Aar sRNA: a 191-nucleotide RNA from Acinetobacter baylyi.
Its family is annotated with regulation of cellular amino acid metabolic process in the Gene Ontology.
The sequence is in the family's curated seed alignment.
The source organism's lineage runs through Bacteria, Pseudomonadota, Gammaproteobacteria, Acinetobacter and Acinetobacter baylyi.

RNA sequence: UUUAACGUGAUUUAACACUUAUUAACGUGAAUACCAAUGAACAAUGAGUGUUACCCUAUUAUUAUGACGGAAUAGGUUAUGCACUCCCCCAAGUUCAUAACAUUCUACUUUACCGAAGCUGUGAAUACAGAUUCGUUGUUAUGCGUAAUGAUCACCCCAAUCGUUACGCUUUUUUUUUGCCUGUUUUAUUA
Numbered sequence: 001u002u003u004a005a006c007g008u009g010a011u012u013u014a015a016c017a018c019u020u021a022u023u024a025a026c027g028u029g030a031a032u033a034c035c036a037a038u039g040a041a042c043a044a045u046g047a048g049u050g051u052u053a054c055c056c057u058a059u060u061a062u063u064a065u066g067a068c069g070g071a072a073u074a075g076g077u078u079a080u081g082c083a084c085u086c087c088c089c090c091a092a093g094u095u096c097a098u099a100a101c102a103u104u105c106u107a108c109u110u111u112a113c114c115g116a117a118g119c120u121g122u123g124a125a126u127a128c129a130g131a132u133u134c135g136u137u138g139u140u141a142u143g144c145g146u147a148a149u150g151a152u153c154a155c156c157c158c159a160a161u162c163g164u165u166a167c168g169c170u171u172u173u174u175u176u177u178u179g180c181c182u183g184u185u186u187u188a189u190u191a
Base pairs, nucleotide, nucleotide: 013053014052015051016050017049018048019047020046021045022044023043026039027038028037065191066190067189070186071185072184073183074182075181076180077179078099079098081096083094084093085092114135115134116133117132119130120129121128122127143169144168145167146166147165148164149163150162151161152160